[Rfam]
RNA: Small nucleolar RNA SNORA72
Organism: Moschus moschiferus
RNA sequence: CUGCGAAUAUUCUCGCGGUUCUGAUUUCGUAAUAGUCGAGGCAGGCUAAACAUUCGCUAUAUUAAGACUAUACAUGUUUCCUCAGAUCUACUUCUUUUCCUAAGUCUGCUUUUAUAAAUGCUGGUGAUAAAC
Numbered sequence: 001c002u003g004c005g006a007a008u009a010u011u012c013u014c015g016c017g018g019u020u021c022u023g024a025u026u027u028c029g030u031a032a033u034a035g036u037c038g039a040g041g042c043a044g045g046c047u048a049a050a051c052a053u054u055c056g057c058u059a060u061a062u063u064a065a066g067a068c069u070a071u072a073c074a075u076g077u078u079u080c081c082u083c084a085g086a087u088c089u090a091c092u093u094c095u096u097u098u099c100c101u102a103a104g105u106c107u108g109c110u111u112u113u114a115u116a117a118a119u120g121c122u123g124g125u126g127a128u129a130a131a132c
Base pairs, nucleotide, nucleotide: 003057004056005055016044018042019041020040022038023037024036025035026034067125068124069123070122073120083108084107085106086105087104089102090101